[Rfam]
RNA sequence: GAAAGCCCGGCAGGGGCGACCUGAGAACACAUAGGAACACAGAAUUAUAAACCACUGGAAGAUAAGGGUUAUAUGUGAGGGUGUCCACAUGUGAUCUCAGGUCGCUCCUGUAGGAAUCCU
Numbered sequence: 001g002a003a004a005g006c007c008c009g010g011c012a013g014g015g016g017c018g019a020c021c022u023g024a025g026a027a028c029a030c031a032u033a034g035g036a037a038c039a040c041a042g043a044a045u046u047a048u049a050a051a052c053c054a055c056u057g058g059a060a061g062a063u064a065a066g067g068g069u070u071a072u073a074u075g076u077g078a079g080g081g082u083g084u085c086c087a088c089a090u091g092u093g094a095u096c097u098c099a100g101g102u103c104g105c106u107c108c109u110g111u112a113g114g115a116a117u118c119c120u
Stems, first nucleotide, its partner, number of pairs: 007114002011110004016105004023098004028093005
MIR398 microRNA precursor family: a 120-nucleotide RNA from Jatropha curcas.
Rfam links the family to the GO terms miRNA-mediated post-transcriptional gene silencing and RISC complex.
The family's consensus secondary structure was predicted with WAR.
For this family Rfam cites "Conservation and divergence of microRNAs and their functions in Euphorbiaceous plants" (Zeng et al., Nucleic Acids Res, 2010).
The family has 14 seed sequences and 627 matches in Rfam 15.1.
The organism belongs to Jatropha, within Eukaryota.